[Rfam]
RNA sequence: GGAGUCUCUACAGGAGUGACAUGUGAACACAUCCGAUUUGAUCGGACGGUCAGAUUUAAAUCAGGCUGAUACUGGACGGUUCUGAUGUGUUCUCAGGUCACCCCUGCUGAGCUUCC
Number, nucleotide and partner (000 for none) at each position: 001g000002g000003a000004g000005u000006c000007u110008c109009u000010a000011c106012a105013g104014g103015a000016g101017u100018g099019a098020c000021a000022u000023g094024u000025g092026a091027a090028c089029a088030c087031a086032u085033c000034c000035g000036a000037u000038u000039u000040g000041a000042u000043c000044g000045g000046a000047c000048g000049g000050u000051c000052a000053g000054a000055u000056u000057u000058a000059a000060a000061u000062c000063a000064g000065g000066c000067u000068g000069a000070u000071a000072c000073u000074g000075g000076a000077c000078g000079g000080u000081u000082c000083u000084g000085a032086u031087g030088u029089g028090u027091u026092c025093u000094c023095a000096g000097g000098u019099c018100a017101c016102c000103c014104c013105u012106g011107c000108u000109g008110a007111g000112c000113u000114u000115c000116c000

Shown here is a 116-nucleotide RNA from Carex littledalei, a member of the family "MIR398 microRNA precursor family". The family's consensus secondary structure was predicted with WAR. Rfam 15.1 lists 627 matches to the family in 211 species. The literature on the family includes a 2004 paper in Mol Cell by Jones-Rhoades and Bartel, "Computational identification of plant microRNAs and their targets, including a stress-induced miRNA".